[Rfam]
Shown here is a 247-nucleotide sequence from Macleaya cordata, a member of the family "MIR159 microRNA precursor family". The family has 66 seed sequences and 3,649 matches in Rfam 15.1. A reference for the family is Jones-Rhoades and Bartel (2004), "Computational identification of plant microRNAs and their targets, including a stress-induced miRNA", Mol Cell. Gene Ontology terms of the family: RISC complex and miRNA-mediated post-transcriptional gene silencing. The source organism's lineage runs through Eukaryota, Streptophytina, Tracheophyta, Ranunculales and Macleaya. The match comes from Rfam's covariance-model search (103 bits).
RNA sequence: UGGAUUUUGGAGGAGCUCCUUUCAGUCCAAUAGAGAGGGCAGAAGAGUGGUUAGAGCUGCCAUCUCAUGCAUUCUUGGUUACCCUUAUUAUUUUUCAAACCCCUGGUGGUGGCGGCGGCGGCGGCAAUGGCAAUGGCAAUGCUUGAAAUGAAAUAUAUAAGUUUAACCAGAUGCAUGGUGUGGGAGCAACUCCUACCACUUAAUUUGUUCACUCAUUGGACUGAAGGGAGCUCCCCAAUACCGUCUC
Numbered sequence: 001u002g003g004a005u006u007u008u009g010g011a012g013g014a015g016c017u018c019c020u021u022u023c024a025g026u027c028c029a030a031u032a033g034a035g036a037g038g039g040c041a042g043a044a045g046a047g048u049g050g051u052u053a054g055a056g057c058u059g060c061c062a063u064c065u066c067a068u069g070c071a072u073u074c075u076u077g078g079u080u081a082c083c084c085u086u087a088u089u090a091u092u093u094u095u096c097a098a099a100c101c102c103c104u105g106g107u108g109g110u111g112g113c114g115g116c117g118g119c120g121g122c123g124g125c126a127a128u129g130g131c132a133a134u135g136g137c138a139a140u141g142c143u144u145g146a147a148a149u150g151a152a153a154u155a156u157a158u159a160a161g162u163u164u165a166a167c168c169a170g171a172u173g174c175a176u177g178g179u180g181u182g183g184g185a186g187c188a189a190c191u192c193c194u195a196c197c198a199c200u201u202a203a204u205u206u207g208u209u210c211a212c213u214c215a216u217u218g219g220a221c222u223g224a225a226g227g228g229a230g231c232u233c234c235c236c237a238a239u240a241c242c243g244u245c246u247c
Stems, first nucleotide, its partner, number of pairs: 013233008023223007057186002060183003066177008